[Rfam]
RNA sequence: GUAAUGAUACUUCCGUCUGGCUAACGUCACUGUAAGGGACGGCCCACCCAUCAGCAUGGGAGGGGGUGGAAUUCCCAUGA
Numbered sequence: 001g002u003a004a005u006g007a008u009a010c011u012u013c014c015g016u017c018u019g020g021c022u023a024a025c026g027u028c029a030c031u032g033u034a035a036g037g038g039a040c041g042g043c044c045c046a047c048c049c050a051u052c053a054g055c056a057u058g059g060g061a062g063g064g065g066g067u068g069g070a071a072u073u074c075c076c077a078u079g080a
Base pairs, nucleotide, nucleotide: 012077013042014041015040016039017038018037043063044062047059048058064076065075066074
A member of the RNA family "pemK RNA" from Peptoanaerobacter stomatis, 80 nucleotides long. Rfam classes the family as a cis-regulatory element.